[Rfam]
RNA sequence: UUAUCUGACAUCUCACAUUAUUGAGGAUAUAAACUAAAUAAAGAAAUAUCAUCGAUCAUGUGAGCUGUUAGAUUA
Numbered sequence: 001u002u003a004u005c006u007g008a009c010a011u012c013u014c015a016c017a018u019u020a021u022u023g024a025g026g027a028u029a030u031a032a033a034c035u036a037a038a039u040a041a042a043g044a045a046a047u048a049u050c051a052u053c054g055a056u057c058a059u060g061u062g063a064g065c066u067g068u069u070a071g072a073u074u075a
Stems, first nucleotide, its partner, number of pairs: 004072007012064007020056005026050005
RNA: mir-392 microRNA precursor family